Source information
A member of the RNA family "ssNA-helicase RNA", 48 nucleotides long. The base pairs follow the family's consensus structure, which is taken from published work.

RNA sequence: UUGCCUAGGGUUAGUAUUACCCCUAGGCAACUUCUGUAAAGUGUAAAA
Numbered sequence: 001u002u003g004c005c006u007a008g009g010g011u012u013a014g015u016a017u018u019a020c021c022c023c024u025a026g027g028c029a030a031c032u033u034c035u036g037u038a039a040a041g042u043g044u045a046a047a048a
Base pairs, nucleotide, nucleotide: 001030002029003028004027005026006025007024008023009022010021
Dot-bracket structure: ((((((((((..........))))))))))..................